[Rfam]
RNA sequence: CUUUUUGCGGGUGGAGCAUCAUCAAGAUUCACAAUCUUAUUUGGGCUCCAAUUUUAGCCCCAUUUGAUGAUAUGAGAAUCUUGAUGAUGCUGCAGCGGCAAUAAA
Dot-bracket structure: .........(.((.((((((((((((((((.((.......................................)).)))))))))))))))).)).).........
RNA: mir-172 microRNA precursor family
Organism: Pyrus ussuriensis x Pyrus communis